[Rfam]
RNA sequence: AGAUGAGAUAGAGGUUGCGUAUUUUAAGAGUAAUUUUUUGGAUGUGGCAGGCACAGAGGAAGGAAAAUGAAAGGAAAACACGCCGAAAGAAUUCGGAGGCACUGCAUAUGGAUUCUUGGGGAUACAGUUAAGAGCUGUAUGACUGUCAUCAGAUUCUGAUGGGGCGCUAUCCGAUGA
Number, nucleotide and partner (000 for none) at each position: 001a000002g000003a000004u000005g000006a000007g171008a170009u169010a168011g167012a000013g000014g000015u000016u000017g083018c082019g081020u080021a000022u078023u077024u076025u075026a000027a000028g000029a000030g000031u000032a000033a068034u067035u066036u065037u064038u063039u062040g000041g000042a000043u000044g000045u000046g000047g000048c000049a000050g000051g000052c000053a000054c000055a000056g000057a000058g000059g000060a000061a000062g039063g038064a037065a036066a035067a034068u033069g000070a000071a000072a000073g000074g000075a025076a024077a023078a022079c000080a020081c019082g018083c017084c000085g000086a000087a117088a116089g115090a114091a113092u112093u111094c110095g109096g000097a107098g000099g000100c000101a000102c000103u000104g000105c000106a000107u097108a000109u095110g094111g093112a092113u091114u090115c089116u088117u087118g144119g143120g000121g000122a140123u139124a138125c137126a136127g135128u134129u000130a000131a000132g000133a000134g128135c127136u126137g125138u124139a123140u122141g000142a000143c119144u118145g000146u162147c161148a160149u159150c158151a157152g156153a000154u000155u000156c152157u151158g150159a149160u148161g147162g146163g000164g000165c000166g000167c011168u010169a009170u008171c007172c000173g000174a000175u000176g000177a000
The record is a 177-nucleotide sequence from Lachnospiraceae bacterium OM04-12BH, which matches "Lysine riboswitch aptamer" in Rfam. A reference for the family is Mandal et al. (2003), "Riboswitches Control Fundamental Biochemical Pathways in Bacillus subtilis and Other Bacteria", Cell. The match comes from Rfam's covariance-model search (116 bits). The family's consensus secondary structure is taken from published work.